[Rfam]
RNA sequence: AGAAGCAGUUAAGCGCCAGAGCUUCAUUUCGCGCGAAUGUGUCCGAGUCUGAGAGUGGAGGUUUGAGGCAUGUUGAUAUCUCGGCGGGGUUGGCCAGGGUCUGUGACGGCCUGACAGGCAGCCAUGCCGGUGAUGCCUUAGGCGGUUCGGAUGGGGACGUAUUCGGCAAAGAGAAGCUGACGAGGUGGAGGUGUUCGGAAUGUUCGGCGGGGGCCUCCCGGUGCUGCAUCGCACCGUAACCGCAUUGGCAAAAGGAAUGGGCGACCGUUCCCACAAACCUUGCGGGCAGAUGGAA
Numbered sequence: 001a002g003a004a005g006c007a008g009u010u011a012a013g014c015g016c017c018a019g020a021g022c023u024u025c026a027u028u029u030c031g032c033g034c035g036a037a038u039g040u041g042u043c044c045g046a047g048u049c050u051g052a053g054a055g056u057g058g059a060g061g062u063u064u065g066a067g068g069c070a071u072g073u074u075g076a077u078a079u080c081u082c083g084g085c086g087g088g089g090u091u092g093g094c095c096a097g098g099g100u101c102u103g104u105g106a107c108g109g110c111c112u113g114a115c116a117g118g119c120a121g122c123c124a125u126g127c128c129g130g131u132g133a134u135g136c137c138u139u140a141g142g143c144g145g146u147u148c149g150g151a152u153g154g155g156g157a158c159g160u161a162u163u164c165g166g167c168a169a170a171g172a173g174a175a176g177c178u179g180a181c182g183a184g185g186u187g188g189a190g191g192u193g194u195u196c197g198g199a200a201u202g203u204u205c206g207g208c209g210g211g212g213g214c215c216u217c218c219c220g221g222u223g224c225u226g227c228a229u230c231g232c233a234c235c236g237u238a239a240c241c242g243c244a245u246u247g248g249c250a251a252a253a254g255g256a257a258u259g260g261g262c263g264a265c266c267g268u269u270c271c272c273a274c275a276a277a278c279c280u281u282g283c284g285g286g287c288a289g290a291u292g293g294a295a
Base pairs, nucleotide, nucleotide: 020178021177022176023175024174025173027171029169187218188217189216190215191214195207196206197205198204219236220235221234222233223232224231240285241284242283243282244281254271255270256269257268258267259266260265
Record summary: The record is a 295-nucleotide RNA sequence from Paenibacillus macerans, which matches "glmS glucosamine-6-phosphate activated ribozyme aptamer" in Rfam. NCBI's taxonomy places the organism under Bacteria, Bacillati, Bacillota, Paenibacillaceae, Paenibacillus. This entry contains a glucosamine-6-phosphate activated ribozyme that is found in the mRNA for GlmS. GlmS is an enzyme that uses fructose-6-phosphate and glutamine to generate glucosamine-6-phosphate. The ribozyme catalyses self cleavage of the glmS mRNA that is thought to regulate GlmS activity. A search with the family's covariance model found it, with a score of 75 bits. Rfam classes the family as a riboswitch. Its family is annotated with catalytic activity and regulation of gene expression in the Gene Ontology.